Group II catalytic intron D1-D4-2: a 117-nucleotide sequence from Ixodes scapularis. About the family: Group II introns are found in rRNA, tRNA and mRNA of organelles in fungi, plants and protists, and also in mRNA in bacteria. Its family is annotated with Group II intron splicing in the Gene Ontology. The match comes from Rfam's covariance-model search (110 bits). The pairing is the family consensus, mapped onto this sequence. The family has 144 seed sequences and 1,231 matches in Rfam 15.1.
RNA sequence: GGAAGUAGGCCUUCCGAAGCCGUUUUACAGGAAAAGGCUUCAAACCACUCUAAGCUGCGUUGGUAAAGAGCCAAGGUGGUGAGCGUUAGAGAAAAGGUAUCUUGCAAGGUAUCAGGU
Numbered sequence: 001g002g003a004a005g006u007a008g009g010c011c012u013u014c015c016g017a018a019g020c021c022g023u024u025u026u027a028c029a030g031g032a033a034a035a036g037g038c039u040u041c042a043a044a045c046c047a048c049u050c051u052a053a054g055c056u057g058c059g060u061u062g063g064u065a066a067a068g069a070g071c072c073a074a075g076g077u078g079g080u081g082a083g084c085g086u087u088a089g090a091g092a093a094a095a096g097g098u099a100u101c102u103u104g105c106a107a108g109g110u111a112u113c114a115g116g117u
Stems, first nucleotide, its partner, number of pairs: 001015005016041006023034004046116001048091006054080002057077002061073004096113006